[Rfam]
RNA sequence: CAAGUGAGUUGGGUAGUCGCGAGGGUAAUAAUAUAUUGCUUUCGAGGAAAGUCCGAGCUCCAUAGGGCCAGGGUGCUGGGUAACACCCAGUGGGGGCGACCCUCAGGAAAGUGCCACAGAAAUAAACCGCCAGUCUUACUGGUAAGGGUGAAAAGGUGUGGUAAGAGCGCACCAGCAGUCAGGUGACUGACUGGCUAGGUAAACCCCACUCGGAGCAAGACCAAAUAGGGAAGGGAUGAAGUAGCCCGCUGACCUUCCGGGUAUGGUCGCUAGAGGUGUCAGGUAACUGGCAUCGUAGAUAGAUGACUAUCACUCUAUAAAGAGUACAGAACUCGGCUUAUAAACUUACUUGAAAC
Numbered sequence: 001c002a003a004g005u006g007a008g009u010u011g012g013g014u015a016g017u018c019g020c021g022a023g024g025g026u027a028a029u030a031a032u033a034u035a036u037u038g039c040u041u042u043c044g045a046g047g048a049a050a051g052u053c054c055g056a057g058c059u060c061c062a063u064a065g066g067g068c069c070a071g072g073g074u075g076c077u078g079g080g081u082a083a084c085a086c087c088c089a090g091u092g093g094g095g096g097c098g099a100c101c102c103u104c105a106g107g108a109a110a111g112u113g114c115c116a117c118a119g120a121a122a123u124a125a126a127c128c129g130c131c132a133g134u135c136u137u138a139c140u141g142g143u144a145a146g147g148g149u150g151a152a153a154a155g156g157u158g159u160g161g162u163a164a165g166a167g168c169g170c171a172c173c174a175g176c177a178g179u180c181a182g183g184u185g186a187c188u189g190a191c192u193g194g195c196u197a198g199g200u201a202a203a204c205c206c207c208a209c210u211c212g213g214a215g216c217a218a219g220a221c222c223a224a225a226u227a228g229g230g231a232a233g234g235g236a237u238g239a240a241g242u243a244g245c246c247c248g249c250u251g252a253c254c255u256u257c258c259g260g261g262u263a264u265g266g267u268c269g270c271u272a273g274a275g276g277u278g279u280c281a282g283g284u285a286a287c288u289g290g291c292a293u294c295g296u297a298g299a300u301a302g303a304u305g306a307c308u309a310u311c312a313c314u315c316u317a318u319a320a321a322g323a324g325u326a327c328a329g330a331a332c333u334c335g336g337c338u339u340a341u342a343a344a345c346u347u348a349c350u351u352g353a354a355a356c
Base pairs, nucleotide, nucleotide: 001352002351003350004349005348006347007346008345009344010343011341012311013310014309015308016307017306018305020044021043022042023041024040025039026038027037028036049339050338051337053336054335055334056333057332058215059214060213061212066247067246069244071211072210073209074208075207076090077089078088079087080086091105092103093102094101095100106206107205111204112203113200114199115198127147128146129143130142131141132140133139134138155173156172157171158170159169160168175195176193177192178191179190180189181188182187219268220267221266222265229258230257231256232255233254234253240250241249242248275294276293277292278291279290280289281288282287

Rfam assigns this 356-nucleotide sequence from Natranaerobius trueperi to the family "Bacterial RNase P class A". A search with the family's covariance model found it, with a score of 314 bits. Ribonuclease P (RNase P) is a ubiquitous endoribonuclease, found in archaea, bacteria and eukarya as well as chloroplasts and mitochondria. Rfam links the family to the GO terms dimeric ribonuclease P complex, tRNA processing and ribonuclease P activity. Pairs were carried over by alignment from the consensus structure, which is taken from published work.